[Rfam]
RNA sequence: UUGUCCCUCUCCGCUUCGGAGAGGGACAGACUUUGACGUAUGUCAAAGUCAGGGAGAGGUC
Numbered sequence: 001u002u003g004u005c006c007c008u009c010u011c012c013g014c015u016u017c018g019g020a021g022a023g024g025g026a027c028a029g030a031c032u033u034u035g036a037c038g039u040a041u042g043u044c045a046a047a048g049u050c051a052g053g054g055a056g057a058g059g060u061c
Stems, first nucleotide, its partner, number of pairs: 004026010029050009
Rfam assigns this 61-nucleotide sequence from Brunnivagina elsteri to the family "Whalefall-1 RNA". By type it is a small RNA. Taxonomically the source falls in Brunnivagina elsteri (Bacteria, Cyanobacteriota, Cyanophyceae, Nostocales).